[Rfam]
RNA sequence: CCUCUUUUUCUUGGCAUACACAAGUUGUUCAGUACGUGUGUAUGUCAUGUUUGGAGGCAGCGCAUGUUUCCAGUGAUAUGUCUUUGGUACCAGUUCGUUACUUGGGCUGGUUCUAUCCUCAAUCACUGGCAUAAGA
Dot-bracket structure: (((((.........((((((.(.((........)).).))))))........))))).............((((((.............(((((((.......)))))))............))))))........
Source information
Shown here is a 136-nucleotide RNA sequence from Microcaecilia unicolor, a member of the family "Small nucleolar RNA SNORA57". It is annotated as an H/ACA-box small nucleolar RNA. NCBI's taxonomy places the organism under Eukaryota, Metazoa, Craniata, Gnathostomata, Microcaecilia. Pairs were carried over by alignment from the consensus structure, which was predicted with PFOLD. On this family, see Vitali et al., Nucleic Acids Res 2003: "Identification of 13 novel human modification guide RNAs". Its family is annotated with nucleolus and RNA processing in the Gene Ontology. About the family: U99 belongs to the H/ACA class of snoRNAs which are thought to guide the sites of modification of uridines to pseudouridines, the target for this family is unknown.